[Rfam]
RNA sequence: UGGUAAUGAUGAAAUUCUUAGGACACCUUUGAGUAAUGUGAUGACACAUGAUUUUCUGAACCAU
Numbered sequence: 001u002g003g004u005a006a007u008g009a010u011g012a013a014a015u016u017c018u019u020a021g022g023a024c025a026c027c028u029u030u031g032a033g034u035a036a037u038g039u040g041a042u043g044a045c046a047c048a049u050g051a052u053u054u055u056c057u058g059a060a061c062c063a064u
Stems, first nucleotide, its partner, number of pairs: 001063004